ZMP/ZTP riboswitch aptamer (pfl RNA motif): an 82-nucleotide RNA from Flintibacter hominis. NCBI's taxonomy places the organism under Bacteria, Bacillati, Bacillota, Clostridia, Flintibacter. It scores 60 bits against the family's covariance model.
RNA sequence: ACUGUGCGAUAUGACUGACGGUAAGUGGAAAUGACCACGGGGAGUAUCGCGUAAUACAAGGCCGACCGUCUGGGCGCACCAA
Numbered sequence: 001a002c003u004g005u006g007c008g009a010u011a012u013g014a015c016u017g018a019c020g021g022u023a024a025g026u027g028g029a030a031a032u033g034a035c036c037a038c039g040g041g042g043a044g045u046a047u048c049g050c051g052u053a054a055u056a057c058a059a060g061g062c063c064g065a066c067c068g069u070c071u072g073g074g075c076g077c078a079c080c081a082a
Stems, first nucleotide, its partner, number of pairs: 003053010015041002017070005025038004061075003